[Rfam]
RNA: Actinobacteria sRNA Ms_IGR-5
Nucleotides: 202
Stems, first nucleotide, its partner, number of pairs: 014059006060105003063101004068097004074091003123196013136154005
Number, partner (000 for none) and nucleotide at each position: 001000a002000c003000a004000c005000a006000a007000g008000a009000g010000a011000g012000g013000a014059g015058g016057u017056g018055g019054u020000c021000u022000g023000a024000a025000g026000a027000a028000u029000g030000u031000a032000u033000g034000u035000u036000c037000a038000a039000c040000g041000g042000a043000u044000g045000c046000g047000u048000g049000a050000g051000g052000u053000g054019g055018c056017u057016g058015c059014c060105c061104g062103c063101u064100a065099g066098c067000a068097g069096c070095a071094c072000c073000c074091c075090u076089g077000c078000g079000g080000g081000a082000g083000a084000u085000u086000c087000c088000c089076c090075a091074g092000c093000g094071g095070u096069g097068c098066g099065c100064u101063g102000a103062g104061c105060g106000a107000a108000u109000c110000c111000c112000a113000g114000g115000c116000a117000g118000a119000c120000a121000c122000c123196c124195g125194g126193c127192c128191c129190c130189c131188g132187a133186g134185c135184c136154c137153c138152c139151g140150g141000a142000c143000u144000a145000u146000c147000c148000a149000c150140c151139c152138g153137g154136g155000a156000c157000c158000g159000c160000c161000a162000c163000g164000u165000u166000c167000c168000c169000c170000g171000g172000a173000a174000c175000g176000g177000a178000c179000g180000g181000u182000a183000u184135g185134g186133c187132u188131c189130g190129g191128g192127g193126g194125u195124c196123g197000c198000u199000c200000c201000a202000u